[Rfam]
RNA sequence: ACUCGACUAAGGCAACCCUGGUAAAAGUCAAGGACGCAAUGCUAAAGGGACUAAUGUGCAAACUACGUCAGCCAGUUGCCGAA
Number, nucleotide and partner (000 for none) at each position: 001a000002c000003u000004c000005g000006a000007c000008u000009a000010a000011g000012g037013c036014a000015a000016c000017c032018c000019u030020g029021g028022u027023a000024a000025a000026a000027g022028u021029c020030a019031a000032g017033g000034a000035c000036g013037c012038a000039a000040u000041g076042c075043u074044a000045a000046a000047g073048g072049g069050a068051c067052u000053a000054a000055u000056g063057u062058g000059c000060a000061a000062a057063c056064u000065a000066c000067g051068u050069c049070a000071g000072c048073c047074a043075g042076u041077u000078g000079c000080c000081g000082a000083a000
This 83-nucleotide RNA sequence from Paenibacillus naphthalenovorans belongs to the Rfam family "c-di-GMP-I riboswitch aptamer". The organism belongs to Paenibacillus, within Bacteria. Rfam 15.1 lists 5,092 matches to the family in 1,772 species.